[Rfam]
RNA sequence: UUGGAGCUUUAUGGAUGGUUUCUAUCUGAGUUUGGUUGAUUCCGUAGUUUAUGCUCCUAAAUUACAAUGGCUUCUGAUGACUACAAAGCAAGAGACCUACUUUGUGGACAGAUACGGGCCAUACAUUU
Number, nucleotide and partner (000 for none) at each position: 001u000002u000003g057004g056005a055006g054007c053008u000009u000010u000011a000012u000013g000014g000015a045016u044017g043018g042019u000020u000021u000022c038023u000024a036025u035026c000027u000028g000029a000030g000031u000032u000033u000034g000035g025036u024037u000038g022039a000040u000041u000042c018043c017044g016045u015046a000047g000048u000049u000050u000051a000052u000053g007054c006055u005056c004057c003058u000059a000060a000061a000062u000063u000064a000065c000066a000067a122068u121069g120070g119071c118072u117073u116074c000075u000076g000077a000078u000079g000080a000081c107082u106083a105084c000085a000086a102087a101088g100089c000090a000091a000092g000093a000094g000095a000096c000097c000098u000099a000100c088101u087102u086103u000104g000105u083106g082107g081108a000109c000110a000111g000112a000113u000114a000115c000116g073117g072118g071119c070120c069121a068122u067123a000124c000125a000126u000127u000128u000
A member of the RNA family "Small Cajal body specific RNA 8" from Cuscuta australis, 128 nucleotides long. For this family Rfam cites "Cajal body-specific small nuclear RNAs: a novel class of 2'-O-methylation and pseudouridylation guide RNAs" (Darzacq et al., EMBO J, 2002). Rfam links the family to the GO terms RNA processing, Cajal body and nucleolus. Rfam describes the family as follows. scaRNAs are a specific class of small nuclear RNAs which localise to the Cajal bodies and guide the modification of RNA polymerase II transcribed spliceosomal RNAs U1, U2, U4, U5 and U12. U92 belong to the H/ACA box class of guide RNAs as it has the predicted hairpin-hinge-hairpin-tail structure, conserved H/ACA-box motifs and is found associated with GAR1. The family's RNA type in Rfam is small Cajal body RNA. The family's consensus secondary structure is taken from published work. The organism belongs to Cuscuta sect. Cleistogrammica, within Eukaryota.